[Rfam]
RNA sequence: GGUGGUUCUCAGGUGACGCACCCUGGAAUCAGGCUCCCUCCUCUCUGGUUCCGGGUGUGUCACCUGAGAACUUCA
Numbered sequence: 001g002g003u004g005g006u007u008c009u010c011a012g013g014u015g016a017c018g019c020a021c022c023c024u025g026g027a028a029u030c031a032g033g034c035u036c037c038c039u040c041c042u043c044u045c046u047g048g049u050u051c052c053g054g055g056u057g058u059g060u061c062a063c064c065u066g067a068g069a070a071c072u073u074c075a
Stems, first nucleotide, its partner, number of pairs: 002074001005071013019057005025052009
This 75-nucleotide RNA from Myotis brandtii belongs to the Rfam family "mir-9223 microRNA precursor family". Rfam links the family to the GO terms RISC complex and miRNA-mediated post-transcriptional gene silencing. The family's consensus secondary structure was predicted with RNAalifold.